[Rfam]
Rfam assigns this 108-nucleotide RNA from Camellia sinensis to the family "mir-172 microRNA precursor family". About the family: mir-172 has been experimentally verified in Arabidopsis thaliana. Pairs were carried over by alignment from the consensus structure, which was predicted with PFOLD. A reference for the family is Jones-Rhoades and Bartel (2004), "Computational Identification of Plant MicroRNAs and Their Targets, Including a Stress-Induced miRNA", Mol Cell.
RNA sequence: UUGUUUGCAGAUGCGGCAUCAUCAAGAUUCACAUGCAAAUGAACAGCAGAUUUAUACUCUGCCGAAUUUGAAAGAUGAGAAUCUUGAUGAUGCUGCAUCAGCAAUCAA
Numbered sequence: 001u002u003g004u005u006u007g008c009a010g011a012u013g014c015g016g017c018a019u020c021a022u023c024a025a026g027a028u029u030c031a032c033a034u035g036c037a038a039a040u041g042a043a044c045a046g047c048a049g050a051u052u053u054a055u056a057c058u059c060u061g062c063c064g065a066a067u068u069u070g071a072a073a074g075a076u077g078a079g080a081a082u083c084u085u086g087a088u089g090a091u092g093c094u095g096c097a098u099c100a101g102c103a104a105u106c107a108a
Base pairs, nucleotide, nucleotide: 010099011098012097013096014095015094016093017092018091019090020089021088022087023086024085025084026083027082028081029080030079032077033076